[Rfam]
RNA sequence: UGGUAGAUGCACCUUGAUUGAUACCCUCCCGACUCCUACGAGUCGGAUUUUUUUG
Numbered sequence: 001u002g003g004u005a006g007a008u009g010c011a012c013c014u015u016g017a018u019u020g021a022u023a024c025c026c027u028c029c030c031g032a033c034u035c036c037u038a039c040g041a042g043u044c045g046g047a048u049u050u051u052u053u054u055g
Stems, first nucleotide, its partner, number of pairs: 002013003027047002030045006
RNA: Nitrogen stress-induced RNA 1
Organism: Oscillatoriales cyanobacterium M59_W2019_021